[Rfam]
RNA sequence: UGGAAGUGAUGAAAUAGAGAUAAUUGGAUGUCUCUUUGAAUGGAGAGUGUGUGUGAUAAAUGGAAUUCAAUUCAGGUCAGGCUAGGGGUGGGGUGUGGGGAAUAUGUGUGUGUGUGCAUGUAUGGAAAAGGCUUUCAAUGGGGGCACUGAUACUGCUGUGCUGAUUCCGGAGUGCAUCUGAGGCGUGUUGUUAACAUCUGGGGUGCCAAUUCACAACAUUGCCAAUGAUUAAAGCCCAAAACAAGCCCACCAAGACAAGCCUAAGCAUCCUAAAUCUCUAACAGGUUCAUUAAUGAACGUGAUCCUGUGAUCUGAUCUGA
Numbered sequence: 001u002g003g004a005a006g007u008g009a010u011g012a013a014a015u016a017g018a019g020a021u022a023a024u025u026g027g028a029u030g031u032c033u034c035u036u037u038g039a040a041u042g043g044a045g046a047g048u049g050u051g052u053g054u055g056a057u058a059a060a061u062g063g064a065a066u067u068c069a070a071u072u073c074a075g076g077u078c079a080g081g082c083u084a085g086g087g088g089u090g091g092g093g094u095g096u097g098g099g100g101a102a103u104a105u106g107u108g109u110g111u112g113u114g115u116g117c118a119u120g121u122a123u124g125g126a127a128a129a130g131g132c133u134u135u136c137a138a139u140g141g142g143g144g145c146a147c148u149g150a151u152a153c154u155g156c157u158g159u160g161c162u163g164a165u166u167c168c169g170g171a172g173u174g175c176a177u178c179u180g181a182g183g184c185g186u187g188u189u190g191u192u193a194a195c196a197u198c199u200g201g202g203g204u205g206c207c208a209a210u211u212c213a214c215a216a217c218a219u220u221g222c223c224a225a226u227g228a229u230u231a232a233a234g235c236c237c238a239a240a241a242c243a244a245g246c247c248c249a250c251c252a253a254g255a256c257a258a259g260c261c262u263a264a265g266c267a268u269c270c271u272a273a274a275u276c277u278c279u280a281a282c283a284g285g286u287u288c289a290u291u292a293a294u295g296a297a298c299g300u301g302a303u304c305c306u307g308u309g310a311u312c313u314g315a316u317c318u319g320a
Stems, first nucleotide, its partner, number of pairs: 001319004186218006193211001195205004
Description: The record is a 320-nucleotide RNA from Nestor notabilis, which matches "Small Cajal body-specific RNA 7" in Rfam. A reference for the family is Darzacq et al. (2002), "Cajal body-specific small nuclear RNAs: a novel class of 2'-O-methylation and pseudouridylation guide RNAs", EMBO J. Rfam classes the family as a small Cajal body RNA. It scores 176 bits against the family's covariance model. Gene Ontology terms of the family: RNA processing and nucleolus. Rfam 15.1 lists 570 matches to the family in 531 species.